[Rfam]
RNA sequence: AACUGAUUGGGCGAGGGAGUUCGCCUUUAUCCGCCUUCGUGCUAAUGACUCCUACCAGCCA
Numbered sequence: 001a002a003c004u005g006a007u008u009g010g011g012c013g014a015g016g017g018a019g020u021u022c023g024c025c026u027u028u029a030u031c032c033g034c035c036u037u038c039g040u041g042c043u044a045a046u047g048a049c050u051c052c053u054a055c056c057a058g059c060c061a
Stems, first nucleotide, its partner, number of pairs: 010025004016052006033042002